[Rfam]
BsrG: a 256-nucleotide RNA from Bacillus sp. V59.32b. The base pairs follow the family's consensus structure, which was predicted with WAR. Gene Ontology terms of the family: toxin activity and autolysis. The family has 6 seed sequences and 614 matches in Rfam 15.1. bsrE, bsrG and bsrH pair through intermolecular interactions with antisense sRNAs. They form type I toxin/antitoxin system that includes an mRNA encoding for a short, toxic peptide (bsrE, bsrG and bsrH) and an antitoxin that is comprised of an antisense RNA. bsrG encodes a 39-amino-acid toxin, and the 180 nucleotide antisense sRNA called SR4 acts as the antitoxin (they overlap by 123 nucleotides). SR4 interaction with the 3'UTR of bsrG RNA promotes bsrG degradation and inhibits its translation. BsrG interferes with cell envelope biosynthesis, causes membrane invaginations and delocalisation of the cell wall synthesis and initiates autolysis. bsrE RNA encodes 30 amino-acid toxin peptide. Its antitoxin gene, SR5 overlaps by 112 nucleotides at the 3' end of bsrE. SR5 also overlaps bsrG from nucleotide 163 to 52 (Rfam overlap check). The antitoxin SR5 promotes bsrE degradation but unlike SR4 it does not directly inhibits toxin mRNA translation. Taxonomically the source falls in Bacillus (Bacteria, Bacillati, Caryophanales, Bacillaceae). On this family, see Saito et al., Gene 2008: "Novel small RNA-encoding genes in the intergenic regions of Bacillus subtilis".
RNA sequence: CAAUAGAAUAGGUGUCUCAAGGGUGGUCAGCUCAUCCCCGUUAGAAAGGGGGUGGUGCUGUACAGUUUCUGACGCUUUGAUGUUUGCUUGUGCUUUUGCAAGCUUGAUCCUUGCUGUACUGUCAUUCGAUAAGAACCACAAAAAAUAAUCCACCCUUGAGCUAGACGGCUAGUGGUGGAUUAUCUUCCCUAUUAUGCUGAGCCCCUUUGAAGGGAACCUCUAUUGCAGGACCGUUUGGUGCUCCAACACCAAAUGG
Numbered sequence: 001c002a003a004u005a006g007a008a009u010a011g012g013u014g015u016c017u018c019a020a021g022g023g024u025g026g027u028c029a030g031c032u033c034a035u036c037c038c039c040g041u042u043a044g045a046a047a048g049g050g051g052g053u054g055g056u057g058c059u060g061u062a063c064a065g066u067u068u069c070u071g072a073c074g075c076u077u078u079g080a081u082g083u084u085u086g087c088u089u090g091u092g093c094u095u096u097u098g099c100a101a102g103c104u105u106g107a108u109c110c111u112u113g114c115u116g117u118a119c120u121g122u123c124a125u126u127c128g129a130u131a132a133g134a135a136c137c138a139c140a141a142a143a144a145a146u147a148a149u150c151c152a153c154c155c156u157u158g159a160g161c162u163a164g165a166c167g168g169c170u171a172g173u174g175g176u177g178g179a180u181u182a183u184c185u186u187c188c189c190u191a192u193u194a195u196g197c198u199g200a201g202c203c204c205c206u207u208u209g210a211a212g213g214g215a216a217c218c219u220c221u222a223u224u225g226c227a228g229g230a231c232c233g234u235u236u237g238g239u240g241c242u243c244c245a246a247c248a249c250c251a252a253a254u255g256g
Stems, first nucleotide, its partner, number of pairs: 001225005007219001009200001011198004016160008025150003032055003036051004062122005074088001098114003163185003202214003231256010